Notes:
A member of the RNA family "Small nucleolar RNA SNORD22" from Oryctolagus cuniculus, 125 nucleotides long. Lineage of the source: Eukaryota > Vertebrata > Amniota > Leporidae > Oryctolagus.
[Rfam]
RNA sequence: UGCCAAUGAGGAACAGACAUCCUGUCUUACUCCCUGUUUUAAUCCCAGAGCCAGUAAUGGUGAACCCACUGGGGUGACUGGGAGAUGGGAUGAGAACUGGUUCUGUAAGGAACUGUCUGAGGUGC
Dot-bracket structure: ((((....................................................................................................................)))).

On this family, see Tycowski et al., Nature 1996: "A mammalian gene with introns instead of exons generating stable RNA products".